[Rfam]
RNA: S10-Clostridia ribosomal protein leader
RNA sequence: AAACAGCGAUGAAGUGGAAGGUUGCUGACACACCCGGCCCCUUUGCCAUGGCGAGUGUGACAGGUUUUUCCGCGGAGAAAUGUCUAUUAAAAAUAUGGGCGA
Numbered sequence: 001a002a003a004c005a006g007c008g009a010u011g012a013a014g015u016g017g018a019a020g021g022u023u024g025c026u027g028a029c030a031c032a033c034c035c036g037g038c039c040c041c042u043u044u045g046c047c048a049u050g051g052c053g054a055g056u057g058u059g060a061c062a063g064g065u066u067u068u069u070c071c072g073c074g075g076a077g078a079a080a081u082g083u084c085u086a087u088u089a090a091a092a093a094u095a096u097g098g099g100c101g102a
Stems, first nucleotide, its partner, number of pairs: 014073003018069004025063003029059005081101004087095001